[Rfam]
RNA sequence: GUCACUCUGGAAAGCAGGACAGGACUCGUGCGGGCACACGCCGGUACGGGCCCCGCCCUCACCGACGGUGAAAGCCGGUCACGCCUCGGGCGGCCGGUGAAGCUCUCAGGUCGAGAUGACAGAGGGGGAGGC
Numbered sequence: 001g002u003c004a005c006u007c008u009g010g011a012a013a014g015c016a017g018g019a020c021a022g023g024a025c026u027c028g029u030g031c032g033g034g035c036a037c038a039c040g041c042c043g044g045u046a047c048g049g050g051c052c053c054c055g056c057c058c059u060c061a062c063c064g065a066c067g068g069u070g071a072a073a074g075c076c077g078g079u080c081a082c083g084c085c086u087c088g089g090g091c092g093g094c095c096g097g098u099g100a101a102g103c104u105c106u107c108a109g110g111u112c113g114a115g116a117u118g119a120c121a122g123a124g125g126g127g128g129a130g131g132c
Base pairs, nucleotide, nucleotide: 002127003126005124006123007122008121009120016059017058018057061111062110063109064107065106068105070103074098075097076096077095078094079093080092